[Rfam]
RNA sequence: CAGCAGGCACUGUUACAAUAUAACUGAAGUGUUAAUAUUGUCGUUCCCCCUGCUUAAAGCAACUGACACAUAACUAUCUCUGUCUAACUUCAUUCCAUAGUAAGACAGGGACGCUUGGUCUCAAACAU
Numbered sequence: 001c002a003g004c005a006g007g008c009a010c011u012g013u014u015a016c017a018a019u020a021u022a023a024c025u026g027a028a029g030u031g032u033u034a035a036u037a038u039u040g041u042c043g044u045u046c047c048c049c050c051u052g053c054u055u056a057a058a059g060c061a062a063c064u065g066a067c068a069c070a071u072a073a074c075u076a077u078c079u080c081u082g083u084c085u086a087a088c089u090u091c092a093u094u095c096c097a098u099a100g101u102a103a104g105a106c107a108g109g110g111a112c113g114c115u116u117g118g119u120c121u122c123a124a125a126c127a128u
Stems, first nucleotide, its partner, number of pairs: 003053005015041007022033003079109004084104002086101001
RNA: Small nucleolar RNA SNORA63